Fungal signal recognition particle RNA: a 282-nucleotide RNA sequence from Cytospora leucostoma. The literature on the family includes a 2002 paper in Curr Opin Struct Biol by Wild et al., "Towards the structure of the mammalian signal recognition particle". A search with the family's covariance model found it, with a score of 122 bits. The source organism's lineage runs through Eukaryota, Opisthokonta, leotiomyceta, Sordariomycetes and Cytospora. The base pairs follow the family's consensus structure, which is taken from published work. Gene Ontology terms of the family: signal recognition particle, endoplasmic reticulum targeting, signal recognition particle, plasma membrane targeting and SRP-dependent cotranslational protein targeting to membrane, signal sequence recognition.
RNA sequence: GGCUGUAAUGGCCUAUUCGGGACGGAGGCUCACAAUAUUCUCACCGCACUAUUCCAUUUCCUUCAGAACCCCACGACGGUGCCCAGCGCGAGUGCCGCAGUGGCCACCCACUCGCUUGGGUAACCAGCGAUGCUGUGCUGUGGCCUGAAGCCGCGAAGACGAUUCCUUAGGGAGGCCUCACUCUGCAGGGGCGUCUUCACUGCGGUCCGGCGUGCUGGAUCACACUGUCAUGGGCUUGGGGUAGAGAGGAGAGAUGGGGAUGUCAACUUCCUUUUUGACUUU
Dot-bracket structure: (((.......))).(.((((((.(((((.(.(((.(.(((((.((.(.(((((.....(......)...((((.(((((((.((((((((.(.(((((((.(.((((.(..(((((.((....))))))).).......)))).)(...)....((((((...((((....(((......)))....)))).)))))).))))))).)..))))))))....))))))).)))).....))))).).)).))))..).).))).).))))).)))))).)..